The family of this 82-nucleotide RNA from Halostagnicola larsenii is "eL15-Euryarchaeota ribosomal protein leader". It is annotated as a cis-regulatory leader. Pairs were carried over by alignment from the consensus structure, which is taken from published work. Lineage of the source: Archaea > Methanobacteriati > Halobacteria > Halobacteriales > Halostagnicola larsenii.

[Rfam]
RNA sequence: CCUGUUCGACACACGUCACAGGUCGGAAGUCACAGGUCGGAAUGUGGAACGCGAGAGAUCCUCUCGAGUUCUGAACCAGGAA
Numbered sequence: 001c002c003u004g005u006u007c008g009a010c011a012c013a014c015g016u017c018a019c020a021g022g023u024c025g026g027a028a029g030u031c032a033c034a035g036g037u038c039g040g041a042a043u044g045u046g047g048a049a050c051g052c053g054a055g056a057g058a059u060c061c062u063c064u065c066g067a068g069u070u071c072u073g074a075a076c077c078a079g080g081a082a
Base pairs, nucleotide, nucleotide: 001036002035003034004033005032039077040076046072047071048070049069050068